[Rfam]
RNA sequence: UGCUGUUAAUGAUGAAUUUUUAAAUAGAUGGGAAUCUCUCUGAAGAAGAGUGAUGAUUACAAAACUCUGAAACAGUG
Numbered sequence: 001u002g003c004u005g006u007u008a009a010u011g012a013u014g015a016a017u018u019u020u021u022a023a024a025u026a027g028a029u030g031g032g033a034a035u036c037u038c039u040c041u042g043a044a045g046a047a048g049a050g051u052g053a054u055g056a057u058u059a060c061a062a063a064a065c066u067c068u069g070a071a072a073c074a075g076u077g
Base pairs, nucleotide, nucleotide: 001077002076003075004074005073006072007071
A member of the RNA family "Small nucleolar RNA SNORD79" from Erinaceus europaeus, 77 nucleotides long. Rfam describes the family as follows. snoRNA U79 or Z22 is found in intron 7 of the gas5 gene in humans and is also present in mice. The literature on the family includes a 2002 paper in Mol Cell Biol by Galardi et al., "Purified box C/D snoRNPs are able to reproduce site-specific 2'-O-methylation of target RNA in vitro". Rfam classes the family as a C/D-box small nucleolar RNA. The family's consensus secondary structure was predicted with PFOLD.